RNA sequence: AGUCGCUCAUUCACCUCGAUAUGACAGCGUCACACGCUAUGCAAGACGAUCGCUCCAUAUCUGCCGAAUGAUGCCAAUGUACGGGGUGCCUACCGUCCAACGUAACCGUUAAUCGCUGCUCUGGCGGCGUUAACAAUCACAGGGCGACACGUUGAGUGAGGCACCCCCUA
Numbered sequence: 001a002g003u004c005g006c007u008c009a010u011u012c013a014c015c016u017c018g019a020u021a022u023g024a025c026a027g028c029g030u031c032a033c034a035c036g037c038u039a040u041g042c043a044a045g046a047c048g049a050u051c052g053c054u055c056c057a058u059a060u061c062u063g064c065c066g067a068a069u070g071a072u073g074c075c076a077a078u079g080u081a082c083g084g085g086g087u088g089c090c091u092a093c094c095g096u097c098c099a100a101c102g103u104a105a106c107c108g109u110u111a112a113u114c115g116c117u118g119c120u121c122u123g124g125c126g127g128c129g130u131u132a133a134c135a136a137u138c139a140c141a142g143g144g145c146g147a148c149a150c151g152u153u154g155a156g157u158g159a160g161g162c163a164c165c166c167c168c169u170a
Stems, first nucleotide, its partner, number of pairs: 005074002007071006019060005026054003085165007094146005108134005148158003

About this RNA: Glm Y RNA activator of glmS mRNA: a 170-nucleotide sequence from Sodalis-like symbiont of Bactericera trigonica. Rfam describes the family as follows. This family consists of a number of bacterial RNA genes of around 167 bases in length. The tke1 RNA gene is present in Escherichia coli, Shigella flexneri, Yersinia pestis and Salmonella species where it is found between the yfhK and purL genes. A search with the family's covariance model found it, with a score of 122 bits. By type it is a small RNA. The family is grouped with related families in Rfam's "Glm clan". A reference for the family is Rivas et al. (2001), "Computational identification of noncoding RNAs in E. coli by comparative genomics", Curr Biol.